Rfam assigns this 133-nucleotide sequence from Xenorhabdus japonica to the family "EFASI RNA". By type it is a small RNA.

RNA sequence: ACGUCAAGAUAAUGAGGCGUUCACCCUGAUUGGAUCAGGCUCUGAACGGGGAGCAUGCCAUCGCCGUGCUGAGCACGUCGCGAGCUCCUGCAAUAACUCAACACACUUCCGCCCUGCUACACAUUAUCUGACG
Numbered sequence: 001a002c003g004u005c006a007a008g009a010u011a012a013u014g015a016g017g018c019g020u021u022c023a024c025c026c027u028g029a030u031u032g033g034a035u036c037a038g039g040c041u042c043u044g045a046a047c048g049g050g051g052a053g054c055a056u057g058c059c060a061u062c063g064c065c066g067u068g069c070u071g072a073g074c075a076c077g078u079c080g081c082g083a084g085c086u087c088c089u090g091c092a093a094u095a096a097c098u099c100a101a102c103a104c105a106c107u108u109c110c111g112c113c114c115u116g117c118u119a120c121a122c123a124u125u126a127u128c129u130g131a132c133g
Stems, first nucleotide, its partner, number of pairs: 002133004007129008018048006049089004061083004065077005